[Rfam]
Selenocysteine insertion sequence 1: a 64-nucleotide RNA sequence from Albula goreensis.
The incorporation of selenocysteine into a protein sequence is directed by an in-frame UGA codon (usually a stop codon) within the coding region of the mRNA. Selenoprotein mRNAs contain a conserved secondary structure in the 3' UTR that is required for the distinction of UGA stop from UGA selenocysteine.
The match comes from Rfam's covariance-model search (37 bits).
The family's RNA type in Rfam is cis-regulatory element.
The source organism's lineage runs through Eukaryota, Eumetazoa, Bilateria, Elopocephalai and Albula.
Its family is annotated with selenocysteine incorporation in the Gene Ontology.
RNA sequence: CAGUGACCAGUGACGGUCUGUCCACAAACCCGCCCUGCGGACAGGACAGACCUGAUGACCCCGG
Numbered sequence: 001c002a003g004u005g006a007c008c009a010g011u012g013a014c015g016g017u018c019u020g021u022c023c024a025c026a027a028a029c030c031c032g033c034c035c036u037g038c039g040g041a042c043a044g045g046a047c048a049g050a051c052c053u054g055a056u057g058a059c060c061c062c063g064g
Stems, first nucleotide, its partner, number of pairs: 005061001015052009030040003